[Rfam]
RNA: ZMP/ZTP riboswitch aptamer (pfl RNA motif)
RNA sequence: UUUAAGCCAUGCGACUGACGGAAGUGGUGGAACCACGUGGAGCAUGGCCGGGUGCCUGCGGGCGUCCCUCUUGCCGACCGUCUGGGCGCACUCA
Number, nucleotide and partner (000 for none) at each position: 001u000002u000003u000004a000005a000006g048007c047008c046009a045010u044011g043012c042013g000014a000015c039016u000017g082018a081019c080020g079021g078022a000023a000024g036025u035026g034027g033028u000029g000030g000031a000032a000033c027034c026035a025036c024037g000038u000039g015040g000041a000042g012043c011044a010045u009046g008047g007048c006049c000050g000051g000052g000053u000054g000055c000056c000057u000058g000059c000060g000061g000062g000063c000064g000065u000066c000067c000068c000069u000070c000071u000072u088073g087074c086075c085076g000077a000078c021079c020080g019081u018082c017083u000084g000085g075086g074087c073088g072089c000090a000091c000092u000093c000094a000